[Rfam]
RNA sequence: GAUAAAUGUGCCUGUGAUGUUAUCGUUGUGUUACUGAUAUAUUUGAUGUCAUUAACAAUUCGUCACUACCUCUGAGGCACAUUUCAU
Numbered sequence: 001g002a003u004a005a006a007u008g009u010g011c012c013u014g015u016g017a018u019g020u021u022a023u024c025g026u027u028g029u030g031u032u033a034c035u036g037a038u039a040u041a042u043u044u045g046a047u048g049u050c051a052u053u054a055a056c057a058a059u060u061c062g063u064c065a066c067u068a069c070c071u072c073u074g075a076g077g078c079a080c081a082u083u084u085c086a087u
Base pairs, nucleotide, nucleotide: 001087004084005083006082007081008080009079010078011077012076
RNA: Small nucleolar RNA SNORD70
Organism: Pomacea canaliculata